[Rfam]
RNA sequence: GUCGGUCUUCGGUAGUGGUCUUUCGGCAGGAAAGGAUUGCCGGAGGGCUUCGAUCGAUGACCGCC
Numbered sequence: 001g002u003c004g005g006u007c008u009u010c011g012g013u014a015g016u017g018g019u020c021u022u023u024c025g026g027c028a029g030g031a032a033a034g035g036a037u038u039g040c041c042g043g044a045g046g047g048c049u050u051c052g053a054u055c056g057a058u059g060a061c062c063g064c065c
Base pairs, nucleotide, nucleotide: 001065003063004062005061006060007059009057010056011055012054013053017049018048019047020046021045022044023043024042025041026040027039028038029037
This 65-nucleotide sequence from Nocardia terpenica belongs to the Rfam family "Actino-pnp RNA". Rfam classes the family as a cis-regulatory element. Lineage of the source: Bacteria > Bacillati > Actinomycetota > Actinomycetes > Nocardia.